[Rfam]
Annotation: The family of this 184-nucleotide sequence from Salmo trutta is "U2 spliceosomal RNA". The literature on the family includes a 1997 paper in Nucleic Acids Res by Zwieb, "The uRNA database". Its Rfam clan is "U2 clan".
Nucleotides: 184
Base pairs, nucleotide, nucleotide: 007017008016009015037056038055039054040053041052042051058076059075060074061073062072064070065069106137107136108135109134110133112131113130117128118127119126120125140177141176142175143174144173145172147169148168149167150166151165
Number, partner (000 for none) and nucleotide at each position: 001000a002000u003000a004000u005000a006000u007017u008016u009015u010000c011000u012000a013000u014000a015009a016008a017007a018000a019000a020000a021000a022000a023000a024000a025000a026000a027000a028000a029000a030000u031000c032000u033000g034000u035000u036000c037056u038055a039054u040053c041052a042051g043000u044000u045000u046000a047000a048000u049000a050000u051042c052041u053040g054039a055038u056037a057000u058076g059075u060074c061073c062072c063000g064070c065069c066000a067000u068000c069065g070064g071000g072062g073061g074060g075059a076058c077000u078000a079000c080000a081000u082000a083000u084000u085000a086000a087000a088000u089000g090000g091000a092000u093000u094000u095000u096000u097000u098000c099000g100000a101000a102000a103000c104000a105000g106137g107136g108135a109134g110133u111000c112131g113130g114000a115000a116000u117128g118127g119126g120125g121000c122000u123000u124000g125120c126119u127118c128117c129000a130113u131112c132000c133110g134109c135108u136107c137106c138000a139000c140177g141176c142175a143174u144173c145172g146000a147169c148168c149167c150166g151165g152000u153000a154000u155000u156000g157000c158000a159000g160000u161000a162000c163000c164000u165151c166150c167149g168148g169147g170000a171000a172145c173144g174143g175142u176141g177140c178000a179000a180000c181000a182000c183000u184000u